[Rfam]
This 131-nucleotide RNA from Eragrostis curvula belongs to the Rfam family "MIR529 microRNA precursor family".

RNA sequence: UCAUCAAGGGCCAAUGGGAGAAGAGAGAGAGUACAGCCUUGCCUCGAUGUUAUCGGUGCCUUCUGUAUGUUCAGUUAAUCGAGUAUGACGAAGGCUGUACCCUCUCUCUUCUUCUCUUAGCUUCUUGAUGC
Number, nucleotide and partner (000 for none) at each position: 001u000002c000003a000004u000005c127006a126007a000008g000009g121010g000011c000012c000013a118014a117015u000016g115017g114018g113019a112020g111021a110022a109023g108024a107025g106026a105027g104028a103029g102030a000031g100032u099033a098034c097035a096036g095037c094038c093039u092040u000041g000042c000043c000044u000045c000046g000047a000048u000049g000050u000051u000052a000053u000054c000055g000056g000057u000058g000059c000060c000061u000062u000063c000064u000065g000066u000067a000068u000069g000070u000071u000072c000073a000074g000075u000076u000077a000078a000079u000080c000081g000082a000083g000084u000085a000086u000087g000088a000089c000090g000091a000092a039093g038094g037095c036096u035097g034098u033099a032100c031101c000102c029103u028104c027105u026106c025107u024108c023109u022110u021111c020112u019113u018114c017115u016116c000117u014118u013119a000120g000121c009122u000123u000124c000125u000126u006127g005128a000129u000130g000131c000
The match comes from Rfam's covariance-model search (87 bits). The family's consensus secondary structure was predicted with WAR.